The family of this 117-nucleotide RNA sequence from Magnetospirillum sp. SS-4 is "ALIL pseudoknot".
The base pairs follow the family's consensus structure, which is taken from published work.
It scores 121 bits against the family's covariance model.
Rfam classes the family as a cis-regulatory element.
Lineage of the source: Bacteria > Alphaproteobacteria > Rhodospirillales > Rhodospirillaceae > Magnetospirillum.
Rfam 15.1 lists 2,146 matches to the family in 1,098 species.

RNA sequence: CGCAUAUUUUGCCCAGGCGGAGCUCGACCGCCGGUUCAAGCCAUGAUCGCCUUCAUCGACGAUCAUCGUGGUGCGCACGGGGUCGAGCCGAUCUGCAAGGUGUUGCCGAUUGCCCCG
Numbered sequence: 001c002g003c004a005u006a007u008u009u010u011g012c013c014c015a016g017g018c019g020g021a022g023c024u025c026g027a028c029c030g031c032c033g034g035u036u037c038a039a040g041c042c043a044u045g046a047u048c049g050c051c052u053u054c055a056u057c058g059a060c061g062a063u064c065a066u067c068g069u070g071g072u073g074c075g076c077a078c079g080g081g082g083u084c085g086a087g088c089c090g091a092u093c094u095g096c097a098a099g100g101u102g103u104u105g106c107c108g109a110u111u112g113c114c115c116c117g
Base pairs, nucleotide, nucleotide: 016032017031018030019029020028078117079116080115081114082113089112090111092109093108095106096105097104098103